[Rfam]
RNA sequence: UACCUUUGCGCACGAAUUCGGAAAGUCCGGGUUCCUACAUAAUAAUCAUUUUAACAAUAUUAGCAUG
Numbered sequence: 001u002a003c004c005u006u007u008g009c010g011c012a013c014g015a016a017u018u019c020g021g022a023a024a025g026u027c028c029g030g031g032u033u034c035c036u037a038c039a040u041a042a043u044a045a046u047c048a049u050u051u052u053a054a055c056a057a058u059a060u061u062a063g064c065a066u067g
Stems, first nucleotide, its partner, number of pairs: 014034006